[Rfam]
RNA sequence: GAGAUGUGUGUGAGAAUCACACAGGCCGAAAACCCAAGGAUUUCCAAGGAAGGUUCGUCCGCUUGGAGUAAGUCGGGACCUAAGGAGAGGCAGAAAUGCGUAUCUGAUGGAUAACAGGUUAAGAUUCCUGUACCUACGCUUAUCGCCAAAGAGGAGAAGGAAUGACGCAGGAGGAUAAGAUCAGCGCACGGUUGGAAGAGUGCGUCCAAGCAGUAAGGCAGGCAUAUAGGCAAAUCCGUAUGCUGAUAAUGUUAAGCUGUGAUGGGGAGAGAAGUUAAGUAUCGAAGGAUCUGAUUUCACACUGACAGGAAAAGUUUCUAUCCAGAUAAGAGUAGCCCGUACCAAAACCGACACAGGUGGGUAAGGUGAGAAACCUAAGGCCAG
Numbered sequence: 001g002a003g004a005u006g007u008g009u010g011u012g013a014g015a016a017u018c019a020c021a022c023a024g025g026c027c028g029a030a031a032a033c034c035c036a037a038g039g040a041u042u043u044c045c046a047a048g049g050a051a052g053g054u055u056c057g058u059c060c061g062c063u064u065g066g067a068g069u070a071a072g073u074c075g076g077g078a079c080c081u082a083a084g085g086a087g088a089g090g091c092a093g094a095a096a097u098g099c100g101u102a103u104c105u106g107a108u109g110g111a112u113a114a115c116a117g118g119u120u121a122a123g124a125u126u127c128c129u130g131u132a133c134c135u136a137c138g139c140u141u142a143u144c145g146c147c148a149a150a151g152a153g154g155a156g157a158a159g160g161a162a163u164g165a166c167g168c169a170g171g172a173g174g175a176u177a178a179g180a181u182c183a184g185c186g187c188a189c190g191g192u193u194g195g196a197a198g199a200g201u202g203c204g205u206c207c208a209a210g211c212a213g214u215a216a217g218g219c220a221g222g223c224a225u226a227u228a229g230g231c232a233a234a235u236c237c238g239u240a241u242g243c244u245g246a247u248a249a250u251g252u253u254a255a256g257c258u259g260u261g262a263u264g265g266g267g268a269g270a271g272a273a274g275u276u277a278a279g280u281a282u283c284g285a286a287g288g289a290u291c292u293g294a295u296u297u298c299a300c301a302c303u304g305a306c307a308g309g310a311a312a313a314g315u316u317u318c319u320a321u322c323c324a325g326a327u328a329a330g331a332g333u334a335g336c337c338c339g340u341a342c343c344a345a346a347a348c349c350g351a352c353a354c355a356g357g358u359g360g361g362u363a364a365g366g367u368g369a370g371a372a373a374c375c376u377a378a379g380g381c382c383a384g
Stems, first nucleotide, its partner, number of pairs: 005023006024382004032362004038343002043067006052060002074339004079110002084105003088101001090099003114131005134335004139330006154322002158319006168304003173298003178292005184205006206265002210260004217253003221244007229237002269283002272280001348357002364376004
RNA: Bacterial large subunit ribosomal RNA, nucleotides 1527 to 1910
Organism: [Eubacterium] yurii